[Rfam]
The record is an 86-nucleotide sequence from Firmicutes bacterium CAG:124, which matches "Glycine riboswitch aptamer" in Rfam. It scores 55 bits against the family's covariance model.
RNA sequence: AUGAACGAAUCAGGAGAGGGCAUACCCGUAUGCCGCCGAAGGGGAACGCGCAACGAACUCUCAGGCAAAAAAACUGAUUCCGGACG
Numbered sequence: 001a002u003g004a005a006c007g008a009a010u011c012a013g014g015a016g017a018g019g020g021c022a023u024a025c026c027c028g029u030a031u032g033c034c035g036c037c038g039a040a041g042g043g044g045a046a047c048g049c050g051c052a053a054c055g056a057a058c059u060c061u062c063a064g065g066c067a068a069a070a071a072a073a074c075u076g077a078u079u080c081c082g083g084a085c086g
Base pairs, nucleotide, nucleotide: 007080008079009078010077011076012075013074020033021032022031023030035066036065037064038062039061042060043059044058047055048054